The family of this 81-nucleotide sequence from Drosophila erecta is "bantam microRNA precursor family".
It is one of the family's seed sequences.
NCBI's taxonomy places the organism under Eukaryota, Panarthropoda, Mandibulata, Diptera, Sophophora.
Rfam links the family to the GO terms miRNA-mediated post-transcriptional gene silencing and RISC complex.
[Rfam]
RNA sequence: AUUUGACUACGAAACCGGUUUUCGAUUUGGUUUGACUGUUUUUCAUACAAGUGAGAUCAUUUUGAAAGCUGAUUUUGUCAA
Numbered sequence: 001a002u003u004u005g006a007c008u009a010c011g012a013a014a015c016c017g018g019u020u021u022u023c024g025a026u027u028u029g030g031u032u033u034g035a036c037u038g039u040u041u042u043u044c045a046u047a048c049a050a051g052u053g054a055g056a057u058c059a060u061u062u063u064g065a066a067a068g069c070u071g072a073u074u075u076u077g078u079c080a081a
Stems, first nucleotide, its partner, number of pairs: 009078006016071010028059006